[Rfam]
RNA: Clostridiales-1 RNA
RNA sequence: UAAAAGUAUCGUCAAUGGAUAGGCAGCUAGGGUAUUUAUACCCUAUGCUGGUUGGACAUUAGGCGAUCUAACUCGUAUGAGCAAGUAAGGCAUUUGUUUGGAUUGCGAAUACGAGCAGCGAUGUCGAGAGUGCGUAGCACGCAGACAUCGACUUUUA
Numbered sequence: 001u002a003a004a005a006g007u008a009u010c011g012u013c014a015a016u017g018g019a020u021a022g023g024c025a026g027c028u029a030g031g032g033u034a035u036u037u038a039u040a041c042c043c044u045a046u047g048c049u050g051g052u053u054g055g056a057c058a059u060u061a062g063g064c065g066a067u068c069u070a071a072c073u074c075g076u077a078u079g080a081g082c083a084a085g086u087a088a089g090g091c092a093u094u095u096g097u098u099u100g101g102a103u104u105g106c107g108a109a110u111a112c113g114a115g116c117a118g119c120g121a122u123g124u125c126g127a128g129a130g131u132g133c134g135u136a137g138c139a140c141g142c143a144g145a146c147a148u149c150g151a152c153u154u155u156u157a
Base pairs, nucleotide, nucleotide: 001157002156003155004154005153006152007151008067009066010065011064014060015059016058017057020054021053022052024050025049026048027047030043031042032041033040034039072115073114074113075112076111077110078109081106082105083104084103088099089098090097091096119150120149121148122147123146124145125144130140131139132138133137